Source information:
The family of this 45-nucleotide RNA sequence from Saccharomonospora azurea is "L31-Actinobacteria ribosomal protein leader". It is annotated as a cis-regulatory leader. The base pairs follow the family's consensus structure, which is taken from published work. Lineage of the source: Bacteria > Actinomycetota > Actinomycetes > Saccharomonospora > Saccharomonospora azurea. Clan: Ribosomal Protein L31 Leader clan.
RNA sequence: CCGGCUCCGGUUCACCUCACGCGGUGGCGUGGGGAUCCGGCGGCC
Numbered sequence: 001c002c003g004g005c006u007c008c009g010g011u012u013c014a015c016c017u018c019a020c021g022c023g024g025u026g027g028c029g030u031g032g033g034g035a036u037c038c039g040g041c042g043g044c045c
Stems, first nucleotide, its partner, number of pairs: 003045003007040004015034008